Small nucleolar RNA SNORD28: a 75-nucleotide sequence from Microcebus murinus.
Rfam classes the family as a C/D-box small nucleolar RNA.
For this family Rfam cites "A small nucleolar RNA requirement for site-specific ribose methylation of rRNA in Xenopus" (Tycowski et al., Proc Natl Acad Sci U S A, 1996).
Pairs were carried over by alignment from the consensus structure, which was predicted with PFOLD.

RNA sequence: GUCACAUGAUUCAAACUGAUAAGAUGAUGCUCUCUGAGGUACAACACUUAAUAGCGUGUUAUAGUUCUGAUGGUA
Numbered sequence: 001g002u003c004a005c006a007u008g009a010u011u012c013a014a015a016c017u018g019a020u021a022a023g024a025u026g027a028u029g030c031u032c033u034c035u036g037a038g039g040u041a042c043a044a045c046a047c048u049u050a051a052u053a054g055c056g057u058g059u060u061a062u063a064g065u066u067c068u069g070a071u072g073g074u075a
Stems, first nucleotide, its partner, number of pairs: 001074004